RNA: Bacterial RNase P class A
Organism: Maribacter vaceletii
RNA sequence: UUAGCAGGUCUCCUUAUCGCUGUUCACCUUGUGUGAAGAGAGGAAAGUCCGGACACCAUAGUGCAGUAUAGCGGGUAACACCCGUCUCCCAUUUAUUGGGACGGACAAGUGCAACAGAAAGUAUGUACAGGUAAUGCUGUAGUGAAACCAGGUAAACUCUAUACGGUGAAACGUCACGUAAAUCAGUGUUUGAGGGCUGCACGCCCGAGCUGAAGGGUAGGCGGUUAGAGCUAUUGGGUAACUAAUAGUCUAGAUAAAUGAUAAGGUUUUGUUUUUUAACAAAGACAGAAUCCGGCUUAUGGCCUGCUUUUUUA
Numbered sequence: 001u002u003a004g005c006a007g008g009u010c011u012c013c014u015u016a017u018c019g020c021u022g023u024u025c026a027c028c029u030u031g032u033g034u035g036a037a038g039a040g041a042g043g044a045a046a047g048u049c050c051g052g053a054c055a056c057c058a059u060a061g062u063g064c065a066g067u068a069u070a071g072c073g074g075g076u077a078a079c080a081c082c083c084g085u086c087u088c089c090c091a092u093u094u095a096u097u098g099g100g101a102c103g104g105a106c107a108a109g110u111g112c113a114a115c116a117g118a119a120a121g122u123a124u125g126u127a128c129a130g131g132u133a134a135u136g137c138u139g140u141a142g143u144g145a146a147a148c149c150a151g152g153u154a155a156a157c158u159c160u161a162u163a164c165g166g167u168g169a170a171a172c173g174u175c176a177c178g179u180a181a182a183u184c185a186g187u188g189u190u191u192g193a194g195g196g197c198u199g200c201a202c203g204c205c206c207g208a209g210c211u212g213a214a215g216g217g218u219a220g221g222c223g224g225u226u227a228g229a230g231c232u233a234u235u236g237g238g239u240a241a242c243u244a245a246u247a248g249u250c251u252a253g254a255u256a257a258a259u260g261a262u263a264a265g266g267u268u269u270u271g272u273u274u275u276u277u278a279a280c281a282a283a284g285a286c287a288g289a290a291u292c293c294g295g296c297u298u299a300u301g302g303c304c305u306g307c308u309u310u311u312u313u314a
Base pairs, nucleotide, nucleotide: 003308004307005306006305007304008303009302010301012266013265014264015263016262017261018260020040021039023037024036025035026034027033045298046297047296049295050294051293052292053291054168055167056166057165061202062201063200064199066164067163068162069161070160071085072084073083074082075081086103087101088100089099090098104159105158109157110156111153112152126141127140128139129138130137172223173222174221175220183213184212185211186210187209194206195205196204197203230249231248232247233246234245235244236243237242